[Rfam]
RNA sequence: ACUUCCCCAGAUUUUCCGUCGUAGUGUCCGAAUGGACAGGGAACCUUGACAGAGUGAUAGCUUCCAAGCUAUCCGCGCAGUAAAGCUACACCUGGGUGCGCCAGAUGUCUCGU
Numbered sequence: 001a002c003u004u005c006c007c008c009a010g011a012u013u014u015u016c017c018g019u020c021g022u023a024g025u026g027u028c029c030g031a032a033u034g035g036a037c038a039g040g041g042a043a044c045c046u047u048g049a050c051a052g053a054g055u056g057a058u059a060g061c062u063u064c065c066a067a068g069c070u071a072u073c074c075g076c077g078c079a080g081u082a083a084a085g086c087u088a089c090a091c092c093u094g095g096g097u098g099c100g101c102c103a104g105a106u107g108u109c110u111c112g113u
Stems, first nucleotide, its partner, number of pairs: 006096005018091002021089004025038005045112001048109004056073007075101005
RNA: EGFOA RNA
Organism: Paenibacillus yonginensis